[Rfam]
RNA sequence: AUGUCAUCUGGAGUCCCUCAAACACUUCAGAAGGGCUUUUGGAGGCUAAACCUGGAACCAGGCAUGCCCUCCCUGAAGUGUUUGGGGGAACUCUGGGUGUCAC
Numbered sequence: 001a002u003g004u005c006a007u008c009u010g011g012a013g014u015c016c017c018u019c020a021a022a023c024a025c026u027u028c029a030g031a032a033g034g035g036c037u038u039u040u041g042g043a044g045g046c047u048a049a050a051c052c053u054g055g056a057a058c059c060a061g062g063c064a065u066g067c068c069c070u071c072c073c074u075g076a077a078g079u080g081u082u083u084g085g086g087g088g089a090a091c092u093c094u095g096g097g098u099g100u101c102a103c
Stems, first nucleotide, its partner, number of pairs: 005099005011093004015088016033070002
RNA: mir-395 microRNA precursor family
Organism: Musa acuminata